[Rfam]
RNA sequence: ACCAGCACCUUCAUCCUCGGACCGUCGGGCACGUACCUGCCCGGAUAAGGAAAUGUAA
Numbered sequence: 001a002c003c004a005g006c007a008c009c010u011u012c013a014u015c016c017u018c019g020g021a022c023c024g025u026c027g028g029g030c031a032c033g034u035a036c037c038u039g040c041c042c043g044g045a046u047a048a049g050g051a052a053a054u055g056u057a058a
Base pairs, nucleotide, nucleotide: 009050010049011048013046014045015044026043027042028041029040030039031038
RNA: msiK RNA